Rfam assigns this 269-nucleotide RNA from Candidatus Thermoflexus japonica to the family "Bacterial large signal recognition particle RNA". Lineage of the source: Bacteria > Bacillati > Thermoflexales > Thermoflexaceae > Thermoflexus. Rfam classes the family as a non-coding RNA gene. Pairs were carried over by alignment from the consensus structure, which is taken from published work.
RNA sequence: CCGUGCUCAGGCGGGGAGGUGGCGGUUCCCUGAACCCGAAAUCCGCCAGACGCGGGGCUGACAUCCCCUUCGAGGGUUAGCGCGGCCCCUCCAGGGGAUCCCUCCCGGUGAUGAAGGUCCGGUCCUGCGCGGCGGACCCCGGUGAACCCCGCCAGGCCCGGAAGGGAGCAACGGUAAGCCGUCCCGGUUCGCGCGCCGCAGGGGUGCCGGGCCGGAGCCGUUUGAGGGAUCACCGGUGGGGAGAGGCGGGCUCGACAAGGGGCGCACGG
Numbered sequence: 001c002c003g004u005g006c007u008c009a010g011g012c013g014g015g016g017a018g019g020u021g022g023c024g025g026u027u028c029c030c031u032g033a034a035c036c037c038g039a040a041a042u043c044c045g046c047c048a049g050a051c052g053c054g055g056g057g058c059u060g061a062c063a064u065c066c067c068c069u070u071c072g073a074g075g076g077u078u079a080g081c082g083c084g085g086c087c088c089c090u091c092c093a094g095g096g097g098a099u100c101c102c103u104c105c106c107g108g109u110g111a112u113g114a115a116g117g118u119c120c121g122g123u124c125c126u127g128c129g130c131g132g133c134g135g136a137c138c139c140c141g142g143u144g145a146a147c148c149c150c151g152c153c154a155g156g157c158c159c160g161g162a163a164g165g166g167a168g169c170a171a172c173g174g175u176a177a178g179c180c181g182u183c184c185c186g187g188u189u190c191g192c193g194c195g196c197c198g199c200a201g202g203g204g205u206g207c208c209g210g211g212c213c214g215g216a217g218c219c220g221u222u223u224g225a226g227g228g229a230u231c232a233c234c235g236g237u238g239g240g241g242a243g244a245g246g247c248g249g250g251c252u253c254g255a256c257a258a259g260g261g262g263c264g265c266a267c268g269g
Stems, first nucleotide, its partner, number of pairs: 001269006010059003013031006020024001035056004065262006074253005081248003086243001088241003094234002097231006105224001107219003116213008124202006130193002133191005140181004149174003157166003